[Rfam]
RNA: mir-2329 microRNA precursor family
RNA sequence: ACUUAUCAGCUCACAUCACAGAUCAGAUCAGAUCCAGGAUCUGAUCUGUGAUGUGAGCUGAUAAGU
Numbered sequence: 001a002c003u004u005a006u007c008a009g010c011u012c013a014c015a016u017c018a019c020a021g022a023u024c025a026g027a028u029c030a031g032a033u034c035c036a037g038g039a040u041c042u043g044a045u046c047u048g049u050g051a052u053g054u055g056a057g058c059u060g061a062u063a064a065g066u
Stems, first nucleotide, its partner, number of pairs: 001066029